[Rfam]
RNA sequence: CUGCAACUAUUCAAGAGAUUUGCCUCCCGUGGGGCACGCCUUUUUUCGUUGCGAAAUAAAACAUGUCCUUUAUUCCCGCUCCUGGAUUGUGUUUCUUGCGCGAUGAUAUGGCUAUGACAAUU
Number, nucleotide and partner (000 for none) at each position: 001c000002u000003g052004c051005a050006a000007c000008u000009a000010u000011u000012c000013a044014a043015g042016a041017g040018a000019u000020u000021u036022g035023c034024c033025u032026c031027c000028c000029g000030u000031g026032g025033g024034g023035c022036a021037c000038g000039c000040c017041u016042u015043u014044u013045u000046u000047c000048g000049u000050u005051g004052c003053g000054a000055a000056a000057u000058a000059a000060a000061a000062c116063a115064u114065g113066u000067c111068c110069u000070u000071u108072a107073u106074u105075c000076c000077c102078g101079c100080u000081c098082c000083u000084g095085g094086a093087u000088u000089g000090u000091g000092u000093u086094u085095c084096u000097u000098g081099c000100g079101c078102g077103a000104u000105g074106a073107u072108a071109u000110g068111g067112c000113u065114a064115u063116g062117a000118c000119a000120a000121u000122u000